RNA sequence: UUCCCUCGGGGAACAUUCAACGCUGUCGGUGAGUUUGAGCCUCUGACAGAAACCAUCGACCGUUGACUGUACCCUGAGGGUCA
Numbered sequence: 001u002u003c004c005c006u007c008g009g010g011g012a013a014c015a016u017u018c019a020a021c022g023c024u025g026u027c028g029g030u031g032a033g034u035u036u037g038a039g040c041c042u043c044u045g046a047c048a049g050a051a052a053c054c055a056u057c058g059a060c061c062g063u064u065g066a067c068u069g070u071a072c073c074c075u076g077a078g079g080g081u082c083a
Base pairs, nucleotide, nucleotide: 001083004079005078006077007076008075014069015068017066018065019064020063021062022061025060026059027058028057029056030055031054033053034052035051036050
Shown here is an 83-nucleotide RNA from Salmo trutta, a member of the family "mir-181 microRNA precursor family". Pairs were carried over by alignment from the consensus structure, which was predicted with PFOLD. It scores 72 bits against the family's covariance model. The family has 157 seed sequences and 3,490 matches in Rfam 15.1. The source organism's lineage runs through Eukaryota, Clupeocephala, Euteleosteomorpha, Salmoniformes and Salmo. For this family Rfam cites "microRNAs: tiny regulators with great potential" (Ambros, Cell, 2001).